[Rfam]
RNA sequence: UCUAUCGUGAGGUAGAAUCUGAAGGAAGUCCUAGACGAAACAUCGAAUCGAUGAACAAGAAGUGGCUAAAAGGCUGGAAACUGUGGGAUGAGAUUACCUAACAAAUCGAAGUCCCUGACCACUCGAAACCGUCACAGUAAAGCCAACGGUUUGAUGCGAAAGCUACUGCU
Numbered sequence: 001u002c003u004a005u006c007g008u009g010a011g012g013u014a015g016a017a018u019c020u021g022a023a024g025g026a027a028g029u030c031c032u033a034g035a036c037g038a039a040a041c042a043u044c045g046a047a048u049c050g051a052u053g054a055a056c057a058a059g060a061a062g063u064g065g066c067u068a069a070a071a072g073g074c075u076g077g078a079a080a081c082u083g084u085g086g087g088a089u090g091a092g093a094u095u096a097c098c099u100a101a102c103a104a105a106u107c108g109a110a111g112u113c114c115c116u117g118a119c120c121a122c123u124c125g126a127a128a129c130c131g132u133c134a135c136a137g138u139a140a141a142g143c144c145a146a147c148g149g150u151u152u153g154a155u156g157c158g159a160a161a162g163c164u165a166c167u168g169c170u
Stems, first nucleotide, its partner, number of pairs: 001016006028170001030168001036162001041156010063145005073138003080132002083129002086114004092107004
Shown here is a 170-nucleotide RNA from Lactiplantibacillus plantarum, a member of the family "Group II catalytic intron D1-D4-3". Rfam describes the family as follows. Group II introns are found in rRNA, tRNA and mRNA of organelles in fungi, plants and protists, and also in mRNA in bacteria.